[Rfam]
RNA sequence: ACAACAUUCGGACCGUCGGUCUACCAAGCUACAUAAUAUUAUAUCUCCCGCUCGGUGGAAGAUCUUCCCUUUGUCGU
Numbered sequence: 001a002c003a004a005c006a007u008u009c010g011g012a013c014c015g016u017c018g019g020u021c022u023a024c025c026a027a028g029c030u031a032c033a034u035a036a037u038a039u040u041a042u043a044u045c046u047c048c049c050g051c052u053c054g055g056u057g058g059a060a061g062a063u064c065u066u067c068c069c070u071u072u073g074u075c076g077u
Base pairs, nucleotide, nucleotide: 004074005073006072010068011067012066015063016062017061020059021058022057023056024055025054027052028051029050
RNA: mir-2774 microRNA precursor family